A member of the RNA family "Plastid-rps12 3UTR RNA" from Gossypium gossypioides, 95 nucleotides long. The source organism's lineage runs through Eukaryota, eudicotyledons, Pentapetalae, Malvaceae and Gossypium. The family's consensus secondary structure was predicted with LocARNA. The match comes from Rfam's covariance-model search (84 bits). Rfam 15.1 lists 1,710 matches to the family in 1,426 species. The family's RNA type in Rfam is cis-regulatory element. Rfam's curators write: Plastid rpl20 is a non-coding RNA (ncRNA) recognised in plastids. It was found in the three prime untranslated region (3UTR) of rps12 gene, its 3UTR location sugest a role in transcript maduration.
[Rfam]
RNA sequence: GGUUUUCAUUGGCGCAAAUCUAAUCAUGGAAUUUAAGAUGAGAAAAAAUUCCCCAUUGGUAGCAAAUGCUUAUCCAUUAAGCAAGAAAAUCCUAU
Numbered sequence: 001g002g003u004u005u006u007c008a009u010u011g012g013c014g015c016a017a018a019u020c021u022a023a024u025c026a027u028g029g030a031a032u033u034u035a036a037g038a039u040g041a042g043a044a045a046a047a048a049u050u051c052c053c054c055a056u057u058g059g060u061a062g063c064a065a066a067u068g069c070u071u072a073u074c075c076a077u078u079a080a081g082c083a084a085g086a087a088a089a090u091c092c093u094a095u
Stems, first nucleotide, its partner, number of pairs: 009023004052085001055077002058074005